[Rfam]
RNA sequence: CGCAUCCCCUAGGGCAUUGGUGUGGAGCUGGAGACCCACUGCCCCAGGUGCUGCUGGGGGUUGUAGUC
Numbered sequence: 001c002g003c004a005u006c007c008c009c010u011a012g013g014g015c016a017u018u019g020g021u022g023u024g025g026a027g028c029u030g031g032a033g034a035c036c037c038a039c040u041g042c043c044c045c046a047g048g049u050g051c052u053g054c055u056g057g058g059g060g061u062u063g064u065a066g067u068c
Stems, first nucleotide, its partner, number of pairs: 002054003006050001008048003012044005018038003022035002

The record is a 68-nucleotide RNA sequence from Canis lupus, which matches "mir-324 microRNA precursor family" in Rfam. Rfam links the family to the GO terms RISC complex, cellular response to leukemia inhibitory factor and long-term synaptic potentiation.